[Rfam]
RNA sequence: CGUUUGUUCUAAGUAGUAGUGCCGCAGGUAAUUUUAAAUUUACAAUUUACCUGAUCAUUGCUGCUUAAAAUGAACC
Numbered sequence: 001c002g003u004u005u006g007u008u009c010u011a012a013g014u015a016g017u018a019g020u021g022c023c024g025c026a027g028g029u030a031a032u033u034u035u036a037a038a039u040u041u042a043c044a045a046u047u048u049a050c051c052u053g054a055u056c057a058u059u060g061c062u063g064c065u066u067a068a069a070a071u072g073a074a075c076c
Stems, first nucleotide, its partner, number of pairs: 002075006010067010025053006
The record is a 76-nucleotide RNA from Panagrolaimus sp. JU765, which matches "mir-252 microRNA precursor family" in Rfam. The organism belongs to Panagrolaimus, within Eukaryota. The family is grouped with related families in Rfam's "mir-252 microRNA precursor family". The family's consensus secondary structure was predicted with RNAalifold.